Rfam assigns this 113-nucleotide sequence from Pongo abelii to the family "Mitochondrial DNA control region secondary structure A". The family's consensus secondary structure is taken from published work. The match comes from Rfam's covariance-model search (40 bits). Rfam 15.1 lists 795 matches to the family in 62 species. For this family Rfam cites "Evidence for variable selective pressures at a large secondary structure of the human mitochondrial DNA control region" (Pereira et al., Mol Biol Evol, 2008).
RNA sequence: UAUUCUUUUCGGCACGCAUUUUAACUACUAUGUAAGUGCUGACCAUCAACACUAAUACAUCAAUACUUUUAUGUACUUUGUGCAUUAUUGCUAGUCUCCAUGAAUAUACAGCA
Number, nucleotide and partner (000 for none) at each position: 001u000002a000003u000004u000005c000006u103007u102008u000009u100010c000011g098012g096013c000014a000015c000016g091017c090018a089019u000020u000021u000022u035023a000024a033025c032026u030027a000028c000029u000030a026031u000032g025033u024034a000035a022036g066037u065038g000039c000040u062041g061042a060043c000044c000045a000046u000047c000048a000049a000050c000051a000052c000053u000054a000055a000056u000057a000058c000059a000060u042061c041062a040063a000064u000065a037066c036067u000068u000069u000070u000071a085072u084073g083074u082075a081076c000077u000078u000079u000080g000081u075082g074083c073084a072085u071086u000087a000088u000089u018090g017091c016092u000093a000094g000095u000096c012097u000098c011099c000100a009101u000102g007103a006104a000105u000106a000107u000108a000109c000110a000111g000112c000113a000